The family of this 71-nucleotide RNA from Rubripirellula obstinata is "int-alpA RNA".
[Rfam]
Nucleotides: 071
Base pairs, nucleotide, nucleotide: 001056003054004053005052006051007050008049011023012022013021014020029046030045031044032043033042036071037070
Number, partner (000 for none) and nucleotide at each position: 001056g002000c003054c004053a005052c006051g007050g008049c009000u010000a011023g012022g013021g014020u015000c016000u017000g018000c019000a020014g021013c022012c023011c024000g025000a026000a027000g028000a029046g030045c031044u032043g033042g034000u035000u036071c037070c038000c039000a040000u041000g042033c043032c044031a045030g046029c047000c048000u049008g050007c051006c052005g053004u054003g055000a056001c057000g058000u059000u060000u061000c062000u063000u064000u065000c066000g067000c068000a069000u070037g071036g
The source organism's lineage runs through Bacteria, Pseudomonadati, Planctomycetota, Planctomycetia and Rubripirellula.
Rfam describes the family as follows. Acidobacteria (1 example), Planctomycetes (1 example), Proteobacteria.